This 512-nucleotide part of an RNA from Sungouiella intermedia belongs to the Rfam family "Eukaryotic small subunit ribosomal RNA". The family has 90 seed sequences and 75,755 matches in Rfam 15.1. NCBI's taxonomy places the organism under Eukaryota, Opisthokonta, Fungi, Serinales, Sungouiella.
RNA sequence: GCAGUUAAAAAGCUCGUAGUUGAACCUUGGGAAGGCCGCGCCGGUCCGCCUUUUGGCGAGCACUGGAGGCAGCCUUCCUUUCCUCUGCCAUCCCUUCGGGGCGGGCAGACUAUUACUUUGAGUAAAUGAGAGUGUUCAAAGCAGGCGUACGCUUGAAUCUGUUAGCAUGGAAUAAUAGAAUAGGACGCAUGGUUCUAUUUUGUUGGUUUCUAGGACCAUCGUAAUGAUUAAUAGGGACGGUCGGGGGCAUCAGUAUUCAGUUGUCAGAGGUGAAAUUCUUGGAUUUACUGAAGACUAACUACUGCGAAAGCAUUUGCCAAGGACGUUUUCAUUAAUCAAGAACGAAAGUUAGGGGAUCGAAGAUGAUCAGAUACCGUCGUAGUCUUAACCAUAAACUAUGCCGACUAGGGAUCGGGCGGCGUUCAUUUAUUGACGCGCUCGGCACCUUACGAGAAAUCAAAGUCUUUGGGUUCUGGGGGGAGUAUGGUCGCAAGGCUGAAACUUAAAGGAAU
Numbered sequence: 001g002c003a004g005u006u007a008a009a010a011a012g013c014u015c016g017u018a019g020u021u022g023a024a025c026c027u028u029g030g031g032a033a034g035g036c037c038g039c040g041c042c043g044g045u046c047c048g049c050c051u052u053u054u055g056g057c058g059a060g061c062a063c064u065g066g067a068g069g070c071a072g073c074c075u076u077c078c079u080u081u082c083c084u085c086u087g088c089c090a091u092c093c094c095u096u097c098g099g100g101g102c103g104g105g106c107a108g109a110c111u112a113u114u115a116c117u118u119u120g121a122g123u124a125a126a127u128g129a130g131a132g133u134g135u136u137c138a139a140a141g142c143a144g145g146c147g148u149a150c151g152c153u154u155g156a157a158u159c160u161g162u163u164a165g166c167a168u169g170g171a172a173u174a175a176u177a178g179a180a181u182a183g184g185a186c187g188c189a190u191g192g193u194u195c196u197a198u199u200u201u202g203u204u205g206g207u208u209u210c211u212a213g214g215a216c217c218a219u220c221g222u223a224a225u226g227a228u229u230a231a232u233a234g235g236g237a238c239g240g241u242c243g244g245g246g247g248c249a250u251c252a253g254u255a256u257u258c259a260g261u262u263g264u265c266a267g268a269g270g271u272g273a274a275a276u277u278c279u280u281g282g283a284u285u286u287a288c289u290g291a292a293g294a295c296u297a298a299c300u301a302c303u304g305c306g307a308a309a310g311c312a313u314u315u316g317c318c319a320a321g322g323a324c325g326u327u328u329u330c331a332u333u334a335a336u337c338a339a340g341a342a343c344g345a346a347a348g349u350u351a352g353g354g355g356a357u358c359g360a361a362g363a364u365g366a367u368c369a370g371a372u373a374c375c376g377u378c379g380u381a382g383u384c385u386u387a388a389c390c391a392u393a394a395a396c397u398a399u400g401c402c403g404a405c406u407a408g409g410g411a412u413c414g415g416g417c418g419g420c421g422u423u424c425a426u427u428u429a430u431u432g433a434c435g436c437g438c439u440c441g442g443c444a445c446c447u448u449a450c451g452a453g454a455a456a457u458c459a460a461a462g463u464c465u466u467u468g469g470g471u472u473c474u475g476g477g478g479g480g481a482g483u484a485u486g487g488u489c490g491c492a493a494g495g496c497u498g499a500a501a502c503u504u505a506a507a508g509g510a511a512u
Stems, first nucleotide, its partner, number of pairs: 002475003010472001012343001014341002019336003234330004238325002241322002246318004252296002256292006263285001267278003304311002348389006358382001362378004400471003403464003407447003412442007421434003451458002477504003486497004